[Rfam]
RNA sequence: UGAAGUCACUGGAUGCAGCGGUUCAUCGAUCUCUUCCUGAAAUUGUUGUGAAAAAAGCAGAUCAAGAAUCGGUCGAUAAACCUCUGCAUCCAGCGUUCACUCC
Numbered sequence: 001u002g003a004a005g006u007c008a009c010u011g012g013a014u015g016c017a018g019c020g021g022u023u024c025a026u027c028g029a030u031c032u033c034u035u036c037c038u039g040a041a042a043u044u045g046u047u048g049u050g051a052a053a054a055a056a057g058c059a060g061a062u063c064a065a066g067a068a069u070c071g072g073u074c075g076a077u078a079a080a081c082c083u084c085u086g087c088a089u090c091c092a093g094c095g096u097u098c099a100c101u102c103c
Base pairs, nucleotide, nucleotide: 011091012090013089016086017085018084020082021081022080023079025077026076027075028074029073030072031071034068035067036066
Dot-bracket structure: ..........(((..(((.((((.(((((((..(((.............................)))..))))))).)))).)))..)))............
The family of this 103-nucleotide RNA sequence from Vitis vinifera is "MIR162_1 microRNA precursor family". NCBI's taxonomy places the organism under Eukaryota, Magnoliopsida, Mesangiospermae, Vitaceae, Vitis. On this family, see Reinhart et al., Genes Dev 2002: "MicroRNAs in plants". Pairs were carried over by alignment from the consensus structure, which was predicted with RNAalifold.